[Rfam]
RNA sequence: UUUUCAAUAUGGGUAUGUAGUCUGAAAAACUCGAAUAUUUUGUGUUGUCAUCAGCUUCUUCUCGCCUGACUUAGGAGACUGGAGUUAAAUAACAGCACGAAAUUU
Numbered sequence: 001u002u003u004u005c006a007a008u009a010u011g012g013g014u015a016u017g018u019a020g021u022c023u024g025a026a027a028a029a030c031u032c033g034a035a036u037a038u039u040u041u042g043u044g045u046u047g048u049c050a051u052c053a054g055c056u057u058c059u060u061c062u063c064g065c066c067u068g069a070c071u072u073a074g075g076a077g078a079c080u081g082g083a084g085u086u087a088a089a090u091a092a093c094a095g096c097a098c099g100a101a102a103u104u105u
Stems, first nucleotide, its partner, number of pairs: 041099007053086006060078004
Dot-bracket structure: ........................................(((((((.....((((((.((((...........))))..))))))......)))))))......

Rfam assigns this 105-nucleotide sequence from Cucumis melo to the family "Small nucleolar RNA snoR97". Rfam links the family to the GO terms nucleolus and RNA processing. Lineage of the source: Eukaryota > Embryophyta > Magnoliopsida > Mesangiospermae > Cucumis. The family's consensus secondary structure was predicted with WAR. By type it is an H/ACA-box small nucleolar RNA.